About this RNA:
Rfam assigns this 220-nucleotide RNA sequence from Candidatus Epulonipiscioides saccharophilum to the family "Group II catalytic intron D1-D4-5". The base pairs follow the family's consensus structure. Gene Ontology term of the family: Group II intron splicing. About the family: Group II introns are found in rRNA, tRNA and mRNA of organelles in fungi, plants and protists, and also in mRNA in bacteria. NCBI's taxonomy places the organism under Bacteria, Bacillati, Bacillota, Clostridia, Candidatus Epulonipiscioides. On this family, see Bonen and Vogel, Trends Genet 2001: "The ins and outs of group II introns".
RNA sequence: AAGAACUAAUAUCUCAAGAAGUGGAAUGAAAGGGUAACGCCUUGAAACGCUUCCAGUAAUACUCCGAAUGGCGUUAAUGUAGGUAAAAGAAUUAAGGUCAUAAGCUCGGUGAAGACUGCAGAAAGUUACCGUAAAAAAAAUUGAUAUUUUAUGUAUAUCAAAGAAAAACGAAACUGCUUUGGAGGCAAGGCAUGUAACUGAUAUGUCGGCUGUCUAUAAA
Numbered sequence: 001a002a003g004a005a006c007u008a009a010u011a012u013c014u015c016a017a018g019a020a021g022u023g024g025a026a027u028g029a030a031a032g033g034g035u036a037a038c039g040c041c042u043u044g045a046a047a048c049g050c051u052u053c054c055a056g057u058a059a060u061a062c063u064c065c066g067a068a069u070g071g072c073g074u075u076a077a078u079g080u081a082g083g084u085a086a087a088a089g090a091a092u093u094a095a096g097g098u099c100a101u102a103a104g105c106u107c108g109g110u111g112a113a114g115a116c117u118g119c120a121g122a123a124a125g126u127u128a129c130c131g132u133a134a135a136a137a138a139a140a141u142u143g144a145u146a147u148u149u150u151a152u153g154u155a156u157a158u159c160a161a162a163g164a165a166a167a168a169c170g171a172a173a174c175u176g177c178u179u180u181g182g183a184g185g186c187a188a189g190g191c192a193u194g195u196a197a198c199u200g201a202u203a204u205g206u207c208g209g210c211u212g213u214c215u216a217u218a219a220a
Stems, first nucleotide, its partner, number of pairs: 018053006031043004054212004064109004068101005074095005116208001118206003124199006130170003175192007